[Rfam]
RNA sequence: UCGGGGUAAAAUAGUGAGUAGCCGACUUGGGGAAGUGAUCGACCCUUGAGAUAAGUUUAAAUCUGCUUUUUUUAACCUCAGAAACUUUUUACCGUGGAUAAAAAGAACUUCUUAGGGUAAAAAAAACAAGACUUAAAUUUAGCCCAACGGUUGAUGAUGUAUUUUCCCCAAGAAGCUGCUCACUAUUUUUCCCCAC
Numbered sequence: 001u002c003g004g005g006g007u008a009a010a011a012u013a014g015u016g017a018g019u020a021g022c023c024g025a026c027u028u029g030g031g032g033a034a035g036u037g038a039u040c041g042a043c044c045c046u047u048g049a050g051a052u053a054a055g056u057u058u059a060a061a062u063c064u065g066c067u068u069u070u071u072u073u074a075a076c077c078u079c080a081g082a083a084a085c086u087u088u089u090u091a092c093c094g095u096g097g098a099u100a101a102a103a104a105g106a107a108c109u110u111c112u113u114a115g116g117g118u119a120a121a122a123a124a125a126a127c128a129a130g131a132c133u134u135a136a137a138u139u140u141a142g143c144c145c146a147a148c149g150g151u152u153g154a155u156g157a158u159g160u161a162u163u164u165u166c167c168c169c170a171a172g173a174a175g176c177u178g179c180u181c182a183c184u185a186u187u188u189u190u191c192c193c194c195a196c
Stems, first nucleotide, its partner, number of pairs: 003194004008189015026172010038158004042151003046147003050143001052141004057136004062131003067126007077117003081113001085105007093097001
Annotation: Rfam assigns this 196-nucleotide RNA sequence from Medicago truncatula to the family "MIR2670 microRNA precursor family". Gene Ontology terms of the family: miRNA-mediated post-transcriptional gene silencing and RISC complex.